[Rfam]
Shown here is a 141-nucleotide RNA from Labrus bergylta, a member of the family "Small nucleolar RNA SNORA29". It is annotated as an H/ACA-box small nucleolar RNA. A search with the family's covariance model found it, with a score of 52 bits. Its Rfam clan is "SNORA20 clan". From the family's description: ACA29 is a member of the H/ACA class of snoRNA that guide the sites of modification of uridines to pseudouridines.
RNA sequence: UGUCCUGUUUUAGUACCAUGCAUCUGCCCUUUAACGGAUGUGUGGCUAUGCUAACGGGAUAGAGAAAUUGUCCUUCAGUGUCUGAAGGGGUCGAGCAGUACCAUUUCUGCCUCCCCUAAUGAAAUGAUGGCACAGUGAAUA
Numbered sequence: 001u002g003u004c005c006u007g008u009u010u011u012a013g014u015a016c017c018a019u020g021c022a023u024c025u026g027c028c029c030u031u032u033a034a035c036g037g038a039u040g041u042g043u044g045g046c047u048a049u050g051c052u053a054a055c056g057g058g059a060u061a062g063a064g065a066a067a068u069u070g071u072c073c074u075u076c077a078g079u080g081u082c083u084g085a086a087g088g089g090g091u092c093g094a095g096c097a098g099u100a101c102c103a104u105u106u107c108u109g110c111c112u113c114c115c116c117u118a119a120u121g122a123a124a125u126g127a128u129g130g131c132a133c134a135g136u137g138a139a140u141a
Base pairs, nucleotide, nucleotide: 004058005057006056007055016045017044018043019042075127076126077125093115095113